[Rfam]
Notes
The family of this 141-nucleotide RNA sequence from Otariodibacter oris is "Glycine riboswitch aptamer".
RNA sequence: CCCUUGGAGAGAUCCAAUCUAAGCUAAGUAGCUAAGUAAGAGAAUUAGUUGCAGUUAGCAAUAGAAAGUGGACGCCGAAGGCGCAAGUUAUUUUAUGUUCAACCCAUAAAAUAGUGAAACGCUCAGGCAAAAGGACAGGGG
Numbered sequence: 001c002c003c004u005u006g007g008a009g010a011g012a013u014c015c016a017a018u019c020u021a022a023g024c025u026a027a028g029u030a031g032c033u034a035a036g037u038a039a040g041a042g043a044a045u046u047a048g049u050u051g052c053a054g055u056u057a058g059c060a061a062u063a064g065a066a067a068g069u070g071g072a073c074g075c076c077g078a079a080g081g082c083g084c085a086a087g088u089u090a091u092u093u094u095a096u097g098u099u100c101a102a103c104c105c106a107u108a109a110a111a112u113a114g115u116g117a118a119a120c121g122c123u124c125a126g127g128c129a130a131a132a133g134g135a136c137a138g139g140g141g
Stems, first nucleotide, its partner, number of pairs: 001141006013072004074128003077124002081122003087115011